[Rfam]
RNA: Plant signal recognition particle RNA
Organism: Ricinus communis
RNA sequence: GCCGGGCUUGGCAACGCGAGCCUGUAACCUGAGUAGGGGCAUUAAGGUGGUGGGACGUUACUCUGGCCCAGUAGGCUGGAUUCGGCGUGACUAUGAUCUGGCUCGCCCGUUCCAAGCUAAGAGUUGAUCCAUGUGGCUUGGGCGAAGGCCCGGGCUCCAUGGGUCCUAGAGCGGAGGGCACAGCGUUAGGCUGGUUUCACAGAGCAGCGAUAACCUCCCUCUCUUGGCAGUGGAAGGAUAACGGACCGGUGUUACCCGGAGCCAUAGAAGCCUAAUGGACCGUGUGAACUGGACCAUCAUUUUU
Number, nucleotide and partner (000 for none) at each position: 001g040002c039003c038004g023005g022006g021007c020008u019009u018010g017011g000012c000013a000014a000015c000016g000017c010018g009019a008020g007021c006022c005023u004024g000025u000026a000027a000028c037029c036030u035031g000032a000033g000034u000035a030036g029037g028038g003039g002040c001041a000042u000043u000044a303045a302046g301047g300048u299049g298050g297051u296052g295053g294054g000055a000056c291057g290058u288059u287060a000061c284062u000063c282064u000065g280066g000067c000068c278069c277070a276071g000072u274073a273074g272075g271076c270077u269078g263079g262080a000081u260082u259083c258084g257085g256086c000087g255088u254089g253090a252091c000092u251093a250094u000095g000096a000097u000098c249099u248100g247101g246102c000103u244104c243105g242106c000107c237108c236109g000110u235111u234112c233113c232114a231115a000116g228117c227118u226119a225120a224121g223122a222123g221124u000125u000126g165127a164128u163129c162130c161131a160132u159133g158134u000135g156136g155137c154138u153139u152140g151141g150142g149143c148144g000145a000146a000147g000148g143149c142150c141151c140152g139153g138154g137155c136156u135157c000158c133159a132160u131161g130162g129163g128164u127165c126166c171167u000168a000169g000170a000171g166172c000173g218174g217175a216176g215177g214178g000179c000180a000181c000182a211183g000184c209185g208186u207187u000188a000189g000190g000191c202192u201193g200194g000195u000196u000197u000198c000199a000200c193201a192202g191203a000204g000205c000206a000207g186208c185209g184210a000211u182212a000213a000214c177215c176216u175217c174218c173219c000220u000221c123222u122223c121224u120225u119226g118227g117228c116229a000230g000231u114232g113233g112234a111235a110236g108237g107238a000239u000240a000241a000242c105243g104244g103245a000246c101247c100248g099249g098250u093251g092252u090253u089254a088255c087256c085257c084258g083259g082260a081261g000262c079263c078264a000265u000266a000267g000268a000269a077270g076271c075272c074273u073274a072275a000276u070277g069278g068279a000280c065281c000282g063283u000284g061285u000286g000287a059288a058289c000290u057291g056292g000293a000294c053295c052296a051297u050298c049299a048300u047301u046302u045303u044304u000